The family of this 297-nucleotide RNA from Smithornis capensis is "Metazoan signal recognition particle RNA". The signal recognition particle (SRP) is a universally conserved ribonucleoprotein. It is involved in the co-translational targeting of proteins to membranes. The eukaryotic SRP consists of a 300-nucleotide 7S RNA and six proteins: SRPs 72, 68, 54, 19, 14, and 9. Rfam classes the family as a non-coding RNA gene. The source organism's lineage runs through Eukaryota, Sarcopterygii, Archosauria, Australaves and Smithornis. It scores 128 bits against the family's covariance model.
RNA sequence: GCAUCCACGUGGUGUGGGCCUGUAGUCCCAGCUGCUGAGGAGGCUGAGCUUGGUAGCUUGCUUGACCCCAGGAGUUCUGGGCUGCAGGGUGUGGUGCUGAGUGGGCGUCCAAGCUAAGGCCACCAUCGAUAUAGUGACCUGCUGGGAGCUGUGGGGGAUACCAGAUUGACUAAGGGAUGGAGCAGCCCAGGUUGGAGAUGGAGCAGGUCACAGCUCCUGUGGCAGUCAGUAGUUGGUUUGCGUCUGUAAACAGGCCCUGCAGUGUAGUCUGGGCAACACAGAGACAGGCAGGCUCCU
Number, nucleotide and partner (000 for none) at each position: 001g019002c018003a000004u016005c000006c014007a000008c000009g000010u000011g000012g000013u000014g006015u000016g004017g000018g002019c001020c000021u000022g000023u000024a000025g000026u041027c040028c039029c000030a000031g000032c000033u000034g000035c000036u000037g000038a000039g028040g027041a026042g000043g000044c000045u000046g295047a294048g293049c292050u291051u290052g289053g000054u287055a000056g000057c000058u284059u283060g000061c281062u280063u000064g000065a000066c000067c273068c272069c271070a270071g269072g268073a000074g000075u000076u000077c267078u266079g265080g000081g263082c262083u261084g260085c259086a258087g257088g256089g255090u000091g000092u253093g000094g251095u250096g000097c000098u000099g000100a000101g247102u246103g245104g244105g243106c242107g241108u240109c236110c235111a000112a234113g233114c232115u231116a230117a000118g227119g226120c225121c000122a000123c222124c221125a220126u219127c168128g167129a166130u165131a000132u163133a000134g161135u160136g159137a000138c157139c156140u153141g152142c151143u000144g149145g000146g000147a000148g000149c144150u000151g142152u141153g140154g000155g000156g139157g138158a000159u136160a135161c134162c000163a132164g000165a130166u129167u128168g127169a000170c000171u000172a000173a000174g217175g216176g215177a000178u213179g000180g000181a000182g000183c000184a000185g208186c207187c206188c000189a000190g000191g000192u201193u200194g199195g000196a000197g000198a000199u194200g193201g192202a000203g000204c000205a000206g187207g186208u185209c000210a000211c000212a000213g178214c000215u176216c175217c174218u000219g126220u125221g124222g123223c000224a000225g120226u119227c118228a000229g000230u116231a115232g114233u113234u112235g110236g109237u000238u000239u000240g108241c107242g106243u105244c104245u103246g102247u101248a000249a000250a095251c094252a000253g092254g000255c089256c088257c087258u086259g085260c084261a083262g082263u081264g000265u079266a078267g077268u072269c071270u070271g069272g068273g067274c000275a000276a000277c000278a000279c000280a062281g061282a000283g059284a058285c000286a000287g054288g000289c052290a051291g050292g049293c048294u047295c046296c000297u000
The base pairs follow the family's consensus structure, which is taken from published work. The family is grouped with related families in Rfam's "SRP clan".